[Rfam]
RNA: Small nucleolar RNA SNORA75
Organism: Danio rerio
RNA sequence: CGCUUCUCAUGAGCUCCUCUCCGUCAGUCCAGUGGCGGUGUAUGGAUUCGCACGAGAAGUAGAGUCAAAAUCACAGUUAAUCAGGUGUUCUCAGUGUUGCACCGAUGUCUGAUGUGAGACACUU
Dot-bracket structure: ..((((((....(((((...(((((........))))).....)))...))..))))))...........(((((...............((.(((...))).)).......))))).......